[Rfam]
A member of the RNA family "Small nucleolar RNA snoR145" from Helianthus annuus, 147 nucleotides long. A search with the family's covariance model found it, with a score of 100 bits.

RNA sequence: UAACGAAGGUCCCAGCAGGGAGGUUGAUUAACUCUAAACGAGUCCUCUCUAACACUUUAUUUUUACCUUCGGAUAUUUAUUUUGCCGAAUCGUAGGAUGUGCAGAUUGUUUUGUUUUGUCUUGUCUUGAAAUCUCGGCAAUAUUUUA
Numbered sequence: 001u002a003a004c005g006a007a008g009g010u011c012c013c014a015g016c017a018g019g020g021a022g023g024u025u026g027a028u029u030a031a032c033u034c035u036a037a038a039c040g041a042g043u044c045c046u047c048u049c050u051a052a053c054a055c056u057u058u059a060u061u062u063u064u065a066c067c068u069u070c071g072g073a074u075a076u077u078u079a080u081u082u083u084g085c086c087g088a089a090u091c092g093u094a095g096g097a098u099g100u101g102c103a104g105a106u107u108g109u110u111u112u113g114u115u116u117u118g119u120c121u122u123g124u125c126u127u128g129a130a131a132u133c134u135c136g137g138c139a140a141u142a143u144u145u146u147a
Stems, first nucleotide, its partner, number of pairs: 004071006011020003026049002032042003084138005096125002099122001101119005